The family of this 140-nucleotide RNA from Proteiniclasticum sediminis is "Group II catalytic intron D1-D4-4". NCBI's taxonomy places the organism under Bacteria, Bacillati, Clostridia, Clostridiaceae, Proteiniclasticum. The family has 90 seed sequences and 840 matches in Rfam 15.1. Group II introns are found in rRNA, tRNA and mRNA of organelles in fungi, plants and protists, and also in mRNA in bacteria.
RNA sequence: CUGCCGGUGAAAGUCCGGACGGGGUAAUUGCCAAGAAGCCCCAGUAGCCAAUCCCCAUGCGUAACAGAAAUGGUGCGUGUGAAGCGGGAGGGUGAUGUAACUCGAGAAGAGUGCUAGCAAGGAUACAGGUCGUAACAUGA
Number, nucleotide and partner (000 for none) at each position: 001c000002u000003g000004c000005c000006g000007g000008u000009g000010a000011a000012a000013g000014u000015c000016c000017g000018g000019a000020c044021g000022g042023g041024g040025u000026a000027a000028u000029u000030g000031c000032c000033a000034a000035g000036a000037a000038g000039c000040c024041c023042c022043a000044g020045u000046a000047g000048c000049c000050a000051a000052u089053c088054c087055c086056c081057a080058u079059g078060c077061g076062u000063a000064a000065c072066a071067g000068a000069a000070a000071u066072g065073g000074u000075g000076c061077g060078u059079g058080u057081g056082a000083a000084g000085c000086g055087g054088g053089a052090g000091g000092g000093u000094g000095a000096u000097g114098u113099a000100a112101c111102u110103c109104g000105a000106g000107a000108a000109g103110a102111g101112u100113g098114c097115u000116a000117g133118c132119a000120a000121g000122g000123a000124u000125a000126c000127a000128g000129g000130u000131c000132g118133u117134a000135a000136c000137a000138u000139g000140a000